[Rfam]
The record is a 78-nucleotide sequence from Denticeps clupeoides, which matches "mir-30 microRNA precursor family" in Rfam. Gene Ontology terms of the family: gene silencing by miRNA and RISC complex.
RNA sequence: GGUGGCGCUGUAAACAUCCUUGACUGGAAGCUGAGGGUUCGGCUGAGAAGCUUUCAGUCGGAUGUUUGCAGCGUCCAG
Numbered sequence: 001g002g003u004g005g006c007g008c009u010g011u012a013a014a015c016a017u018c019c020u021u022g023a024c025u026g027g028a029a030g031c032u033g034a035g036g037g038u039u040c041g042g043c044u045g046a047g048a049a050g051c052u053u054u055c056a057g058u059c060g061g062a063u064g065u066u067u068g069c070a071g072c073g074u075c076c077a078g
Stems, first nucleotide, its partner, number of pairs: 004075003008071012023058010

The source organism's lineage runs through Eukaryota, Gnathostomata, Euteleostomi, Denticipitidae and Denticeps.
The match comes from Rfam's covariance-model search (66 bits).
This family consists of the mammalian microRNA (miRNA) precursor mir-30a. Animal miRNAs are transcribed as ~70nt precursors and subsequently processed by the Dicer enzyme to give a ~22nt product. In this case the mature sequence comes from both the 3' (miR-30) and 5' (mir-97-6) arms of the precursor.